[Rfam]
Ribosomal protein L20 leader: a 119-nucleotide RNA sequence from Salipaludibacillus neizhouensis. Rfam classes the family as a cis-regulatory leader.

RNA sequence: CAAAGCAAGAAGAGGCGCCCGCUUCUCACCUGAUCGACAAUUGCGUUGGCAGGUCACGAUUUUUUUACAAACACGUACGUAGAAGUGUGGGCGAAUGACACCCACGCUUUUUUUUGUGU
Numbered sequence: 001c002a003a004a005g006c007a008a009g010a011a012g013a014g015g016c017g018c019c020c021g022c023u024u025c026u027c028a029c030c031u032g033a034u035c036g037a038c039a040a041u042u043g044c045g046u047u048g049g050c051a052g053g054u055c056a057c058g059a060u061u062u063u064u065u066u067a068c069a070a071a072c073a074c075g076u077a078c079g080u081a082g083a084a085g086u087g088u089g090g091g092c093g094a095a096u097g098a099c100a101c102c103c104a105c106g107c108u109u110u111u112u113u114u115u116g117u118g119u
Stems, first nucleotide, its partner, number of pairs: 011026006028054003034049005086106006093099001

NCBI's taxonomy places the organism under Bacteria, Bacillati, Bacilli, Caryophanales, Salipaludibacillus. A search with the family's covariance model found it, with a score of 64 bits. On this family, see Zengel and Lindahl, Prog Nucleic Acid Res Mol Biol 1994: "Diverse mechanisms for regulating ribosomal protein synthesis in Escherichia coli". Gene Ontology term of the family: regulation of gene expression. This family is a putative r-protein leader autoregulatory structure found in B. subtilis and other low-GC Gram-positive bacteria. It is located in the 5' untranslated regions of mRNAs encoding initiation factor 3 followed by ribosomal proteins L35 and L20 (infC-rpmI-rplT). A Rho-independent transcription terminator structure that is probably involved in regulation is included at the 3' end. The base pairs follow the family's consensus structure, which was predicted with CMfinder.